[Rfam]
RNA: tRNA
RNA sequence: UGGGCUAUAGCCAAACGGUAAGGCAACGGACUCUGACUCCGUCAUUCUCAAGGUUCGAAUCCUUGUAGCCCAG
Numbered sequence: 001u002g003g004g005c006u007a008u009a010g011c012c013a014a015a016c017g018g019u020a021a022g023g024c025a026a027c028g029g030a031c032u033c034u035g036a037c038u039c040c041g042u043c044a045u046u047c048u049c050a051a052g053g054u055u056c057g058a059a060u061c062c063u064u065g066u067a068g069c070c071c072a073g
Base pairs, nucleotide, nucleotide: 001072002071003070004069005068006067007066010024011023012022026042027041028040029039030038049065050064051063052062053061